[Rfam]
RNA: U4atac minor spliceosomal RNA
RNA sequence: AUCGACCUUGCGGUGGGGAGUGACUUGGGCAGUGAAGGCCAACUGAGCUCAAGAUUGCCGACACCUUACACUAAAAACGAUGCGUUUGUGACUUACUUCGUCAUUGAGCGCAAUUUUUGGAGCC
Numbered sequence: 001a002u003c004g005a006c007c008u009u010g011c012g013g014u015g016g017g018g019a020g021u022g023a024c025u026u027g028g029g030c031a032g033u034g035a036a037g038g039c040c041a042a043c044u045g046a047g048c049u050c051a052a053g054a055u056u057g058c059c060g061a062c063a064c065c066u067u068a069c070a071c072u073a074a075a076a077a078c079g080a081u082g083c084g085u086u087u088g089u090g091a092c093u094u095a096c097u098u099c100g101u102c103a104u105u106g107a108g109c110g111c112a113a114u115u116u117u118u119g120g121a122g123c124c
Base pairs, nucleotide, nucleotide: 006018007017008016009015020058021057022056023055024053025052026051027050028049029048030047036044037043082111083110084109085108086107087106090102091101092100